[Rfam]
RNA sequence: GACUUAAAGAUAUUAUCUUUCAGUAGAAAGACAGUGUCUUUUCUAGACCUCGCGUCUCAUCCCCUCAACUAAACGAAAUUUUUCUCUCCGUCCACAUGGCUAAUGUGGCGUGAGAAGUAAUUGAAAUUUCACUAGGUUGCCUAAGUGCGGGUUCAAGUGUUGUGUGCCCUGGUGUUCCUGGUUAGGUGUUCCGUCACCAACCAUACAUCACAAGCACCCUCUGAUAGUUCUGUCUAUCAGAGUGUGUGGAUAUCAAGUUCUGUCUUGGUUGAAACCAAUAACUGACCCUCAUGGCUUGCAAUCAUAUUUCCCUGGCAU
Numbered sequence: 001g002a003c004u005u006a007a008a009g010a011u012a013u014u015a016u017c018u019u020u021c022a023g024u025a026g027a028a029a030g031a032c033a034g035u036g037u038c039u040u041u042u043c044u045a046g047a048c049c050u051c052g053c054g055u056c057u058c059a060u061c062c063c064c065u066c067a068a069c070u071a072a073a074c075g076a077a078a079u080u081u082u083u084c085u086c087u088c089c090g091u092c093c094a095c096a097u098g099g100c101u102a103a104u105g106u107g108g109c110g111u112g113a114g115a116a117g118u119a120a121u122u123g124a125a126a127u128u129u130c131a132c133u134a135g136g137u138u139g140c141c142u143a144a145g146u147g148c149g150g151g152u153u154c155a156a157g158u159g160u161u162g163u164g165u166g167c168c169c170u171g172g173u174g175u176u177c178c179u180g181g182u183u184a185g186g187u188g189u190u191c192c193g194u195c196a197c198c199a200a201c202c203a204u205a206c207a208u209c210a211c212a213a214g215c216a217c218c219c220u221c222u223g224a225u226a227g228u229u230c231u232g233u234c235u236a237u238c239a240g241a242g243u244g245u246g247u248g249g250a251u252a253u254c255a256a257g258u259u260c261u262g263u264c265u266u267g268g269u270u271g272a273a274a275c276c277a278a279u280a281a282c283u284g285a286c287c288c289u290c291a292u293g294g295c296u297u298g299c300a301a302u303c304a305u306a307u308u309u310c311c312c313u314g315g316c317a318u
Stems, first nucleotide, its partner, number of pairs: 006041005012035003016031006045057004075130007083117001085115004092108006137301003145292003149288003153285002156283002158280005171209004181202001183200001185198004219242009246275002252269006
About this RNA: A member of the RNA family "Alphacoronavirus 5'UTR" from Rhinolophus bat coronavirus HKU32, 318 nucleotides long. Rfam links the family to the GO term viral RNA genome replication. The base pairs follow the family's consensus structure. Taxonomically the source falls in Decacovirus (Viruses, Pisuviricota, Pisoniviricetes, Orthocoronavirinae).